[Rfam]
A member of the RNA family "Plastid-rps12 3UTR RNA" from Protea cynaroides, 97 nucleotides long. The match comes from Rfam's covariance-model search (94 bits). The family's RNA type in Rfam is cis-regulatory element. Rfam describes the family as follows. Plastid rpl20 is a non-coding RNA (ncRNA) recognised in plastids. It was found in the three prime untranslated region (3UTR) of rps12 gene, its 3UTR location sugest a role in transcript maduration. The literature on the family includes a 2023 paper in Plant Commun by Richter et al., "Retrograde signaling in plants: A critical review focusing on the GUN pathway and beyond". Taxonomically the source falls in Protea (Eukaryota, Streptophyta, Streptophytina, Tracheophyta).
RNA sequence: GAUUUUCAUUGGUGCAAAUCCAAUCACCUUCAUUGGAGAUGAGAAACAAUUCUUCAUUGGUAGCAAAUGGUUUUCCAUUAAACAGGGAAAAUAAUAA
Numbered sequence: 001g002a003u004u005u006u007c008a009u010u011g012g013u014g015c016a017a018a019u020c021c022a023a024u025c026a027c028c029u030u031c032a033u034u035g036g037a038g039a040u041g042a043g044a045a046a047c048a049a050u051u052c053u054u055c056a057u058u059g060g061u062a063g064c065a066a067a068u069g070g071u072u073u074u075c076c077a078u079u080a081a082a083c084a085g086g087g088a089a090a091a092u093a094a095u096a097a
Stems, first nucleotide, its partner, number of pairs: 009023004052087003056078002059075002062072003
Dot-bracket structure: ........((((.......))))............................(((.((.((.(((.....))).)).))......)))..........